[Rfam]
RNA: Small nucleolar RNA SNORD111
RNA sequence: CAGCCUGAAGUGAUGAAUGAGUUCAUGUCUCUUCUCUGAGAUGGAUCCUGGAGACAUCUAUAUUCAUUCCUGAUCAGGCUG
Number, nucleotide and partner (000 for none) at each position: 001c081002a080003g079004c078005c077006u000007g000008a000009a000010g000011u000012g000013a000014u000015g000016a000017a000018u000019g000020a000021g000022u000023u000024c000025a000026u000027g000028u000029c000030u000031c000032u000033u000034c000035u000036c000037u000038g000039a000040g000041a000042u000043g000044g000045a000046u000047c000048c000049u000050g000051g000052a000053g000054a000055c000056a000057u000058c000059u000060a000061u000062a000063u000064u000065c000066a000067u000068u000069c000070c000071u000072g000073a000074u000075c000076a000077g005078g004079c003080u002081g001